[Rfam]
RNA sequence: AUGUAAUCCAGUAUAUGGGGAUGUAUUCCACACAUUCAACGGCGGGAAUGCAGGAAAAAUAAAAGGGGAGAUAAAAUCCCCCCUUUUUGUUAACU
Numbered sequence: 001a002u003g004u005a006a007u008c009c010a011g012u013a014u015a016u017g018g019g020g021a022u023g024u025a026u027u028c029c030a031c032a033c034a035u036u037c038a039a040c041g042g043c044g045g046g047a048a049u050g051c052a053g054g055a056a057a058a059a060u061a062a063a064a065g066g067g068g069a070g071a072u073a074a075a076a077u078c079c080c081c082c083c084u085u086u087u088u089g090u091u092a093a094c095u
Stems, first nucleotide, its partner, number of pairs: 010036003016032002019029002062086007070078003

Rfam assigns this 95-nucleotide RNA from Klebsiella pneumoniae to the family "sraA".
For this family Rfam cites "Novel small RNA-encoding genes in the intergenic regions of Escherichia coli" (Argaman et al., Curr Biol, 2001).
The sequence is in the family's curated seed alignment.
Rfam classes the family as a small RNA.
Pairs were carried over by alignment from the consensus structure, which was predicted with RNAalifold.